[Rfam]
Overview
The record is a 151-nucleotide RNA sequence from Bombyx mori, which matches "U12 minor spliceosomal RNA" in Rfam. By type it is a spliceosomal small nuclear RNA. On this family, see Tarn and Steitz, Trends Biochem Sci 1997: "Pre-mRNA splicing: the discovery of a new spliceosome doubles the challenge".

RNA sequence: GUGCCUCAAUCUAAUGAGUAAGGAAAUUAUUGGGCCUUGGUAACACUUGGCAAUUGUCCUUAUUAGGGCGAACUUAUUUUUGUUGGGUACAGGUCGUCCCCUUGAGCCGCUCGCCUACUUUGCAAGCGGCUCGGGUGAAGCGAUUUGCCCU
Numbered sequence: 001g002u003g004c005c006u007c008a009a010u011c012u013a014a015u016g017a018g019u020a021a022g023g024a025a026a027u028u029a030u031u032g033g034g035c036c037u038u039g040g041u042a043a044c045a046c047u048u049g050g051c052a053a054u055u056g057u058c059c060u061u062a063u064u065a066g067g068g069c070g071a072a073c074u075u076a077u078u079u080u081u082g083u084u085g086g087g088u089a090c091a092g093g094u095c096g097u098c099c100c101c102u103u104g105a106g107c108c109g110c111u112c113g114c115c116u117a118c119u120u121u122g123c124a125a126g127c128g129g130c131u132c133g134g135g136u137g138a139a140g141c142g143a144u145u146u147g148c149c150c151u
Stems, first nucleotide, its partner, number of pairs: 004023003008019001034051003039046001054071005085150004091146007100135002104132005110126002113123002
NCBI's taxonomy places the organism under Eukaryota, Altocrustacea, Endopterygota, Heteroneura, Bombyx.